RNA sequence: GACAUUUCAUGAUAGGAAGGACUGAAAAGUCUUGUGGACGCCUGGUCUUUCCCUGAUGUUCUCGUGGC
Numbered sequence: 001g002a003c004a005u006u007u008c009a010u011g012a013u014a015g016g017a018a019g020g021a022c023u024g025a026a027a028a029g030u031c032u033u034g035u036g037g038a039c040g041c042c043u044g045g046u047c048u049u050u051c052c053c054u055g056a057u058g059u060u061c062u063c064g065u066g067g068c
Stems, first nucleotide, its partner, number of pairs: 002065002015052009029039003
Dot-bracket structure: .((...........(((((((((.....(((.....)))....)))))))))...........))...
RNA: Selenocysteine insertion sequence 1
Organism: Nomascus leucogenys